[Rfam]
RNA sequence: CCCUAGCCCUGAUUGUAGUGAAAAUCCUUUUUUGAGGCACGAAAAAAAGAUUGAAACGUAAAGCAGGAAAAAGC
Numbered sequence: 001c002c003c004u005a006g007c008c009c010u011g012a013u014u015g016u017a018g019u020g021a022a023a024a025u026c027c028u029u030u031u032u033u034g035a036g037g038c039a040c041g042a043a044a045a046a047a048a049g050a051u052u053g054a055a056a057c058g059u060a061a062a063g064c065a066g067g068a069a070a071a072a073g074c
Stems, first nucleotide, its partner, number of pairs: 009066003013062002018057002023052004029047005
About this RNA
A member of the RNA family "Flavo-1 RNA" from Flavobacterium psychrophilum, 74 nucleotides long.